Record summary:
The record is a 35-nucleotide sequence from Pedobacter sp. BAL39, which matches "DUF805b RNA" in Rfam. The source organism's lineage runs through Bacteria, Pseudomonadati, Sphingobacteriia, Sphingobacteriales and Pedobacter. By type it is a cis-regulatory element. It is one of the family's seed sequences.
[Rfam]
RNA sequence: GAAGGGUAAGCUGAAAACCUUUAACAGAGUAGGCG
Numbered sequence: 001g002a003a004g005g006g007u008a009a010g011c012u013g014a015a016a017a018c019c020u021u022u023a024a025c026a027g028a029g030u031a032g033g034c035g
Stems, first nucleotide, its partner, number of pairs: 002021004010034003